[Rfam]
RNA sequence: CUCUGGUAACUAGAGAUCCCUCAGACCACUAUAGACUGUGUAAAAAUCUCUAGCAGUGGCGCCCGAACAGGGACUCGAAAGCGAAAGUUCCAGAG
Dot-bracket structure: ((((((...((((((((..(.(.(.(.......).).).).....)))))))).(.(..(((((.....))).((....))))..).).))))))
The family of this 95-nucleotide RNA from Lentivirus humimdef1 is "HIV primer binding site (PBS)". From the family's description: This family consists of several, structured HIV primer binding sites (PBSs). tRNA(3)(Lys) binds to the PBS to initiate reverse transcription. The literature on the family includes a 2004 paper in J Mol Biol by Damgaard et al., "RNA interactions in the 5' region of the HIV-1 genome". The match comes from Rfam's covariance-model search (88 bits). Its family is annotated with tRNA binding in the Gene Ontology.